[Rfam]
Nucleotides: 068
Base pairs, nucleotide, nucleotide: 001067002066003065004064005063006062007061010021011020012019013018023039024038025037026036027035044060045059046058048056
Number, partner (000 for none) and nucleotide at each position: 001067g002066a003065g004064g005063u006062g007061u008000u009000a010021g011020u012019a013018a014000a015000a016000c017000a018013u019012u020011a021010u022000a023039u024038a025037a026036u027035u028000u029000u030000g031000u032000c033000a034000a035027a036026g037025u038024u039023a040000a041000g042000u043000u044060a045059c046058a047000a048056g049000u050000g051000a052000a053000a054000g055000u056048c057000c058046u059045g060044u061007a062006c063005a064004c065003c066002u067001c068000a